Rfam assigns this 94-nucleotide sequence from Candidatus Mycoplasma haematobovis to the family "Bacterial small signal recognition particle RNA".
The family's consensus secondary structure is taken from published work.
NCBI's taxonomy places the organism under Bacteria, Mollicutes, Mycoplasmatales, Mycoplasmataceae, Mycoplasma.
A search with the family's covariance model found it, with a score of 49 bits.
The family's RNA type in Rfam is non-coding RNA gene.
[Rfam]
Nucleotides: 094
Stems, first nucleotide, its partner, number of pairs: 004088002008084007015075001017074004022069001025066004034059004042051003
Number, partner (000 for none) and nucleotide at each position: 001000u002000u003000u004088a005087a006000c007000u008084g009083c010082u011081a012080u013079c014078u015075c016000a017074g018073c019072a020071a021000u022069c023000a024000a025066u026065u027064u028063c029000g030000a031000a032000c033000c034059a035058a036057g037056u038000c039000a040000g041000g042051u043050u044049a045000g046000a047000a048000a049044u050043a051042a052000a053000g054000c055000a056037g057036c058035u059034u060000u061000a062000a063028g064027a065026a066025a067000g068000g069022g070000u071020u072019u073018g074017u075015g076000u077000g078014a079013g080012g081011u082010a083009g084008c085000u086000u087005u088004u089000a090000u091000a092000u093000u094000u